[Rfam]
RNA: SAM-V (S-adenosyl methionine) riboswitch aptamer
Organism: Candidatus Pelagibacter communis
RNA sequence: AGGCGCAUUUGAACUGUAUUGUACGCCUUGCAUAAAGCAAAAGUACUAAAAAA
Numbered sequence: 001a002g003g004c005g006c007a008u009u010u011g012a013a014c015u016g017u018a019u020u021g022u023a024c025g026c027c028u029u030g031c032a033u034a035a036a037g038c039a040a041a042a043g044u045a046c047u048a049a050a051a052a053a
Stems, first nucleotide, its partner, number of pairs: 001028004019049002021046004030038002